[Rfam]
RNA sequence: GACGGGCCUCCCAGCAUGGGGGCGCGGCCAAACGGGUCAGGUCGGGAACGAAGCAGCCCUAACCGUUAGCACUCAGUGCCUGGGUAAGGCUCGUCAAC
Number, nucleotide and partner (000 for none) at each position: 001g000002a000003c000004g092005g091006g090007c089008c088009u000010c084011c083012c082013a081014g080015c076016a000017u075018g074019g073020g072021g000022g070023c000024g066025c065026g064027g063028c000029c000030a000031a000032a000033c000034g059035g058036g057037u056038c000039a000040g000041g000042u051043c050044g049045g000046g000047a000048a000049c044050g043051a042052a000053g000054c000055a000056g037057c036058c035059c034060u000061a000062a000063c027064c026065g025066u024067u000068a000069g000070c022071a000072c020073u019074c018075a017076g015077u000078g000079c000080c014081u013082g012083g011084g010085u000086a000087a000088g008089g007090c006091u005092c004093g000094u000095c000096a000097a000098c000
RNA: Bacterial small signal recognition particle RNA
Organism: Rivibacter subsaxonicus